Rfam assigns this 117-nucleotide RNA sequence from Constantimarinum furrinae to the family "Bacteroidete tryptophan peptide leader RNA". Lineage of the source: Bacteria > Pseudomonadati > Bacteroidota > Flavobacteriales > Constantimarinum. The family's consensus secondary structure is taken from published work. It scores 55 bits against the family's covariance model.
[Rfam]
RNA sequence: AUAUCUUUGGUCUUUCAACUAUGAACAAUAAUAAAUUACAUACUUGGUGGUGGAAAAACUUACGUCGAUCGUCGUGAGAGAAUGCACUGUGGUAUGUUUCAUAUACAAAGGCUUGUC
Numbered sequence: 001a002u003a004u005c006u007u008u009g010g011u012c013u014u015u016c017a018a019c020u021a022u023g024a025a026c027a028a029u030a031a032u033a034a035a036u037u038a039c040a041u042a043c044u045u046g047g048u049g050g051u052g053g054a055a056a057a058a059c060u061u062a063c064g065u066c067g068a069u070c071g072u073c074g075u076g077a078g079a080g081a082a083u084g085c086a087c088u089g090u091g092g093u094a095u096g097u098u099u100c101a102u103a104u105a106c107a108a109a110g111g112c113u114u115g116u117c
Base pairs, nucleotide, nucleotide: 038097040095041094042093043092044091049088050087051086052085056083059080060079061078062072063071064070